This 108-nucleotide RNA from Paroceanicella profunda belongs to the Rfam family "TPP riboswitch aptamer (THI element)". A search with the family's covariance model found it, with a score of 81 bits.
RNA sequence: CUUCAUCCGUUGGGGUGCCCGUAGCCGGGCUGAGAGAUGCGAGCCGCGCAUCAACCCAUCGAACCUGAUCCGGGCAAUGCCGGCGUAGGGAACGGGUUUUGAGCGAGG
Numbered sequence: 001c002u003u004c005a006u007c008c009g010u011u012g013g014g015g016u017g018c019c020c021g022u023a024g025c026c027g028g029g030c031u032g033a034g035a036g037a038u039g040c041g042a043g044c045c046g047c048g049c050a051u052c053a054a055c056c057c058a059u060c061g062a063a064c065c066u067g068a069u070c071c072g073g074g075c076a077a078u079g080c081c082g083g084c085g086u087a088g089g090g091a092a093c094g095g096g097u098u099u100u101g102a103g104c105g106a107g108g
Base pairs, nucleotide, nucleotide: 006096007095008094009093010092011058012057013056014055017030018029019028020027021026037051038050039049040048041047064089065088066087067086070083071082072081073080
Dot-bracket structure: .....(((((((((..(((((....)))))......(((((.....)))))...)))).....((((..((((......))))..))))..)))))............